[Rfam]
RNA sequence: UGCCGAGGUUUUCCUCGGUAGUUAACUGCAUCCGGUUUCAAACAAAUUUGGCAGCUAACUGCCGAGGGGGCAU
Numbered sequence: 001u002g003c004c005g006a007g008g009u010u011u012u013c014c015u016c017g018g019u020a021g022u023u024a025a026c027u028g029c030a031u032c033c034g035g036u037u038u039c040a041a042a043c044a045a046a047u048u049u050g051g052c053a054g055c056u057a058a059c060u061g062c063c064g065a066g067g068g069g070g071c072a073u
Stems, first nucleotide, its partner, number of pairs: 012069002015066001016064009026054004
Shown here is a 73-nucleotide sequence from Medicago truncatula, a member of the family "MIR2629 microRNA precursor family". Rfam links the family to the GO terms RISC complex and miRNA-mediated post-transcriptional gene silencing. The organism belongs to Medicago, within Eukaryota. The base pairs follow the family's consensus structure, which was predicted with RNAalifold.